[Rfam]
RNA sequence: UACUGGUAGCUCUAAGCCAGGGGCGGUAGCGUG
Numbered sequence: 001u002a003c004u005g006g007u008a009g010c011u012c013u014a015a016g017c018c019a020g021g022g023g024c025g026g027u028a029g030c031g032u033g
Stems, first nucleotide, its partner, number of pairs: 003020005
A member of the RNA family "JUMPstart RNA" from bacteria symbiont BFo2 of Frankliniella occidentalis, 33 nucleotides long. Pairs were carried over by alignment from the consensus structure, which is taken from published work. It scores 42 bits against the family's covariance model. Lineage of the source: Bacteria > Pseudomonadati > Pseudomonadota > Gammaproteobacteria > Enterobacterales. By type it is a cis-regulatory element.